The family of this 124-nucleotide RNA sequence from Skermanella stibiiresistens is "Guanidine-I riboswitch aptamer". This family represents a conserved RNA structure found upstream of the ykkC and yxkD genes in Bacillus subtilis and related genes in other bacteria. The pairing is the family consensus, mapped onto this sequence. Rfam links the family to the GO term regulation of gene expression.
RNA sequence: AUUUCCAGCAGCUAGGGUUCCGGCCGGAACGGGUUCAAACCCCGACCGGUGUUACUGGUCCGAGAGCGGCGACCCGUCCGGUGAACAGCGGACGGGCACACGGCGGGACAAAAGCCCGGGAGGU
Numbered sequence: 001a002u003u004u005c006c007a008g009c010a011g012c013u014a015g016g017g018u019u020c021c022g023g024c025c026g027g028a029a030c031g032g033g034u035u036c037a038a039a040c041c042c043c044g045a046c047c048g049g050u051g052u053u054a055c056u057g058g059u060c061c062g063a064g065a066g067c068g069g070c071g072a073c074c075c076g077u078c079c080g081g082u083g084a085a086c087a088g089c090g091g092a093c094g095g096g097c098a099c100a101c102g103g104c105g106g107g108a109c110a111a112a113a114g115c116c117c118g119g120g121a122g123g124u
Stems, first nucleotide, its partner, number of pairs: 008070002011067002015061002020058002022055001023050005073096007099119001101122001105117003